[Rfam]
RNA sequence: UUCGGCCUCGCUGCAUUUCCUAUGCAGCCCUCUGCACUCCGUCGCCGACGCACCUCUUAGUCGAAAACUUUCGCUACAUCAGCAGGCGAUCCUGUCGCCUACUCCGCGGCGCGGC
Numbered sequence: 001u002u003c004g005g006c007c008u009c010g011c012u013g014c015a016u017u018u019c020c021u022a023u024g025c026a027g028c029c030c031u032c033u034g035c036a037c038u039c040c041g042u043c044g045c046c047g048a049c050g051c052a053c054c055u056c057u058u059a060g061u062c063g064a065a066a067a068c069u070u071u072c073g074c075u076a077c078a079u080c081a082g083c084a085g086g087c088g089a090u091c092c093u094g095u096c097g098c099c100u101a102c103u104c105c106g107c108g109g110c111g112c113g114g115c
Stems, first nucleotide, its partner, number of pairs: 010028006039114003043111005073098002076095002
RNA: Pseudomon-Rho RNA